This 277-nucleotide RNA from Galemys pyrenaicus belongs to the Rfam family "RNase MRP". Rfam classes the family as a ribozyme. Rfam 15.1 lists 3,510 matches to the family in 2,315 species. For this family Rfam cites "Secondary structure of RNase MRP RNA as predicted by phylogenetic comparison" (Schmitt et al., FASEB J, 1993). Rfam's curators write: RNase MRP is an enzymatically active ribonucleoprotein with two distinct roles in eukaryotes. The family's consensus secondary structure is taken from published work.
RNA sequence: GUUCGUGCUGAAGGCCUGUUUCCUAGGCUACAAACGGGGGACUUGUUCCUUACUUCCGCCUAGGGGAAAGUCCCCGGACCUCCGGCAGAGAGUGCCACGUGCACACGCACGUAGACUUUCCUGCGUAUCACCGUAAAAGUCCGCUAAGAAGCAACCCCGCUUUGUAGCGGGUGAGCCGAGCGGCGUGUUGCAGGGAUGUCAUCCGUCAGCUGCUAUAGUUACGCAGGCAGCGCGCUUCCGUGCGCGCCAACUACACGGGGCUCAUUCUCAGUGCGGC
Numbered sequence: 001g002u003u004c005g006u007g008c009u010g011a012a013g014g015c016c017u018g019u020u021u022c023c024u025a026g027g028c029u030a031c032a033a034a035c036g037g038g039g040g041a042c043u044u045g046u047u048c049c050u051u052a053c054u055u056c057c058g059c060c061u062a063g064g065g066g067a068a069a070g071u072c073c074c075c076g077g078a079c080c081u082c083c084g085g086c087a088g089a090g091a092g093u094g095c096c097a098c099g100u101g102c103a104c105a106c107g108c109a110c111g112u113a114g115a116c117u118u119u120c121c122u123g124c125g126u127a128u129c130a131c132c133g134u135a136a137a138a139g140u141c142c143g144c145u146a147a148g149a150a151g152c153a154a155c156c157c158c159g160c161u162u163u164g165u166a167g168c169g170g171g172u173g174a175g176c177c178g179a180g181c182g183g184c185g186u187g188u189u190g191c192a193g194g195g196a197u198g199u200c201a202u203c204c205g206u207c208a209g210c211u212g213c214u215a216u217a218g219u220u221a222c223g224c225a226g227g228c229a230g231c232g233c234g235c236u237u238c239c240g241u242g243c244g245c246g247c248c249a250a251c252u253a254c255a256c257g258g259g260g261c262u263c264a265u266u267c268u269c270a271g272u273g274c275g276g277c
Stems, first nucleotide, its partner, number of pairs: 003276009014228006022064007037051005069262002072260004084096004097112006114200003119195006129187003141183004167176002230247006